The record is an 86-nucleotide RNA sequence from Amoebophrya sp. A25, which matches "Selenocysteine transfer RNA" in Rfam. The organism belongs to Amoebophrya, within Eukaryota. The family's consensus secondary structure is taken from published work.
[Rfam]
RNA sequence: GCAGUGGUGAGCCGGGCUGGUGCUCGGACGCGGCUUCAACCCGCGGGGGGCAGAGAUGCCCAGGGGUUCGAUUCCUCCUCCGCUGC
Numbered sequence: 001g002c003a004g005u006g007g008u009g010a011g012c013c014g015g016g017c018u019g020g021u022g023c024u025c026g027g028a029c030g031c032g033g034c035u036u037c038a039a040c041c042c043g044c045g046g047g048g049g050g051c052a053g054a055g056a057u058g059c060c061c062a063g064g065g066g067u068u069c070g071a072u073u074c075c076u077c078c079u080c081c082g083c084u085g086c
Stems, first nucleotide, its partner, number of pairs: 001086007009078001012027006029045005048061005063077004